[Rfam]
The family of this 97-nucleotide RNA sequence from Butyrivibrio sp. YAB3001 is "THF (Tetrahydrofolate) riboswitch aptamer". On this family, see Ames et al., Chem Biol 2010: "A eubacterial riboswitch class that senses the coenzyme tetrahydrofolate". Its family is annotated with tetrahydrofolate metabolic process in the Gene Ontology. A search with the family's covariance model found it, with a score of 84 bits. NCBI's taxonomy places the organism under Bacteria, Bacillati, Bacillota, Lachnospirales, Butyrivibrio.

RNA sequence: UGCAGAGUAGAUGUUAAAGCGUUAAGUGCCGGGUAGACAGGGAGUUGCUACUUGGACGAAGGAAAUAUCCGCGGUUUUAAUGUCGCAUCCCGCUGCU
Numbered sequence: 001u002g003c004a005g006a007g008u009a010g011a012u013g014u015u016a017a018a019g020c021g022u023u024a025a026g027u028g029c030c031g032g033g034u035a036g037a038c039a040g041g042g043a044g045u046u047g048c049u050a051c052u053u054g055g056a057c058g059a060a061g062g063a064a065a066u067a068u069c070c071g072c073g074g075u076u077u078u079a080a081u082g083u084c085g086c087a088u089c090c091c092g093c094u095g096c097u
Base pairs, nucleotide, nucleotide: 002096003095004094005093010084011083012082013081014080015079016078017077018076019075020073021072022071026057027056029055030054031053032052033051034050035049036048040090041089042088044086061070062069063068